RNA sequence: AGGGGUGCGAUGAUUGUAGCAUAUAUUCCUCGUUCCGGAAGGUACGACAGUGCCGUUUGUGGACGAUCUUUAUACACCCAUAGAAUAUGAGCACU
Numbered sequence: 001a002g003g004g005g006u007g008c009g010a011u012g013a014u015u016g017u018a019g020c021a022u023a024u025a026u027u028c029c030u031c032g033u034u035c036c037g038g039a040a041g042g043u044a045c046g047a048c049a050g051u052g053c054c055g056u057u058u059g060u061g062g063a064c065g066a067u068c069u070u071u072a073u074a075c076a077c078c079c080a081u082a083g084a085a086u087a088u089g090a091g092c093a094c095u
Stems, first nucleotide, its partner, number of pairs: 003095002006093002
RNA: Small nucleolar RNA snoR8a